Shown here is an 87-nucleotide RNA sequence from Gallus gallus, a member of the family "mir-135 microRNA precursor family".
[Rfam]
RNA sequence: GCCUCACUGUCCUGUAUGGCUUUUUAUUCCUAUGUGAUUAUACAUCCCGCUUCAUAUAGGGAUUGAAGCCGUGCAAGGCGCUGGGGU
Numbered sequence: 001g002c003c004u005c006a007c008u009g010u011c012c013u014g015u016a017u018g019g020c021u022u023u024u025u026a027u028u029c030c031u032a033u034g035u036g037a038u039u040a041u042a043c044a045u046c047c048c049g050c051u052u053c054a055u056a057u058a059g060g061g062a063u064u065g066a067a068g069c070c071g072u073g074c075a076a077g078g079c080g081c082u083g084g085g086g087u
Base pairs, nucleotide, nucleotide: 002086003085004084005083006082008080009079010078011077013075014074015073016072017071018070019069020068021067022066023065026063027062028061029060030059031058032057033056034055035054036053037052

For this family Rfam cites "Identification of tissue-specific microRNAs from mouse" (Lagos-Quintana et al., Curr Biol, 2002).
NCBI's taxonomy places the organism under Eukaryota, Metazoa, Teleostomi, Galloanserae, Gallus.